Shown here is a 154-nucleotide sequence from Amborella trichopoda, a member of the family "MIR8565 microRNA precursor family". The base pairs follow the family's consensus structure, which was predicted with RNAalifold. Taxonomically the source falls in Amborella (Eukaryota, Viridiplantae, Embryophyta, Euphyllophyta).
[Rfam]
RNA sequence: CCCACACUUAUGUGUGUAGGGCCCUAAAGGAUCACCAUUGAAUUUGGCACAGAUUUUUAGAAAAGUUAUCACAUGGGUGUGGGACUUAAUUUUUUUAGAGAUUUGUGCCAAAUUUAAUGAUGAUGCUUUAGAAUCCUACACACAUGGGUGUGGG
Numbered sequence: 001c002c003c004a005c006a007c008u009u010a011u012g013u014g015u016g017u018a019g020g021g022c023c024c025u026a027a028a029g030g031a032u033c034a035c036c037a038u039u040g041a042a043u044u045u046g047g048c049a050c051a052g053a054u055u056u057u058u059a060g061a062a063a064a065g066u067u068a069u070c071a072c073a074u075g076g077g078u079g080u081g082g083g084a085c086u087u088a089a090u091u092u093u094u095u096u097a098g099a100g101a102u103u104u105g106u107g108c109c110a111a112a113u114u115u116a117a118u119g120a121u122g123a124u125g126c127u128u129u130a131g132a133a134u135c136c137u138a139c140a141c142a143c144a145u146g147g148g149u150g151u152g153g154g
Base pairs, nucleotide, nucleotide: 002153003152004151005150006149007148008147009146010145011144012143013142015140016139017138018137019136020135021134024131025130026129027128028127031124032123034121036119037118038117039116040115041114042113043112044111045110046109047108048107049106050105051104052103053102054101055100056099057098058097059096060095061094062093063092064091065090066089067088068087069082070081071080072079073078